[Rfam]
RNA sequence: AGGCAGCCUCUUUGCUUUAAUUCGCCAUGGCAAUGAAGGUGUUAAACUGCUCGGAUAGCAAUAUUGCUUUUGCUCUUCAGUCUUGCUGAGAUCCAUUGAUGAAGCUGGACUAGUAAGCUUAAGCACAUU
Dot-bracket structure: .((((.((((.(((((............))))).)).)))))).......................(((..(((....(((((.(((..((....)).....))).)))))....)))..)))......
Numbered sequence: 001a002g003g004c005a006g007c008c009u010c011u012u013u014g015c016u017u018u019a020a021u022u023c024g025c026c027a028u029g030g031c032a033a034u035g036a037a038g039g040u041g042u043u044a045a046a047c048u049g050c051u052c053g054g055a056u057a058g059c060a061a062u063a064u065u066g067c068u069u070u071u072g073c074u075c076u077u078c079a080g081u082c083u084u085g086c087u088g089a090g091a092u093c094c095a096u097u098g099a100u101g102a103a104g105c106u107g108g109a110c111u112a113g114u115a116a117g118c119u120u121a122a123g124c125a126c127a128u129u
Stems, first nucleotide, its partner, number of pairs: 002043004007039002009036002012033005067123003072118003079111005085105003090097002
The family of this 129-nucleotide sequence from Hibiscus trionum is "Small nucleolar RNA snoR77". NCBI's taxonomy places the organism under Eukaryota, Streptophyta, eudicotyledons, rosids, Hibiscus. A search with the family's covariance model found it, with a score of 115 bits. Pairs were carried over by alignment from the consensus structure, which was predicted with WAR. On this family, see Marker et al., Curr Biol 2002: "Experimental RNomics: identification of 140 candidates for small non-messenger RNAs in the plant Arabidopsis thaliana".